This 84-nucleotide sequence belongs to the Rfam family "c-di-GMP-II-GAG riboswitch aptamer". The sequence is in the family's curated seed alignment. The literature on the family includes a 2017 paper in Proc Natl Acad Sci U S A by Weinberg et al., "Bioinformatic analysis of riboswitch structures uncovers variant classes with altered ligand specificity". Rfam links the family to the GO terms cyclic-di-GMP binding and regulation of gene expression. The base pairs follow the family's consensus structure, which is taken from published work. The family is grouped with related families in Rfam's "c-di-GMP_II riboswitch clan".
Nucleotides: 084
Stems, first nucleotide, its partner, number of pairs: 001084001008077004013059003022053008037071002039067005
Number, partner (000 for none) and nucleotide at each position: 001084c002000a003000g004000c005000a006000a007000g008077c009076a010075g011074g012000a013059g014058g015057c016000a017000a018000c019000g020000a021000a022053c023052u024051g025050u026049c027048a028047c029046c030000u031000g032000u033000a034000u035000u036000u037071g038070g039067u040066c041065a042064c043063u044000u045000g046029g047028g048027u049026g050025g051024c052023g053022g054000g055000g056000a057015g058014c059013c060000a061000g062000u063043a064042g065041u066040g067039a068000g069000a070038c071037c072000g073000g074011c075010c076009u077008g078000a079000a080000g081000a082000a083000g084001g